[Rfam]
RNA sequence: UUGAAUAAUAUAUACGCCGUUCGUAUAUCCUCGAAAAUAUGGUUCGAAAGUUUCUACCGGGGCACCGUAAAUGCUCUGACUAUGAAGGCGGAAUAUCUGUAU
Numbered sequence: 001u002u003g004a005a006u007a008a009u010a011u012a013u014a015c016g017c018c019g020u021u022c023g024u025a026u027a028u029c030c031u032c033g034a035a036a037a038u039a040u041g042g043u044u045c046g047a048a049a050g051u052u053u054c055u056a057c058c059g060g061g062g063c064a065c066c067g068u069a070a071a072u073g074c075u076c077u078g079a080c081u082a083u084g085a086a087g088g089c090g091g092a093a094u095a096u097c098u099g100u101a102u
Base pairs, nucleotide, nucleotide: 018088020086021085022084023083024082025081031047032046033045034044035043058078059077060076061075062074063073064072
Description:
The family of this 102-nucleotide RNA sequence from Virgibacillus oceani is "Purine riboswitch aptamer". The base pairs follow the family's consensus structure, which is taken from published work. A search with the family's covariance model found it, with a score of 79 bits.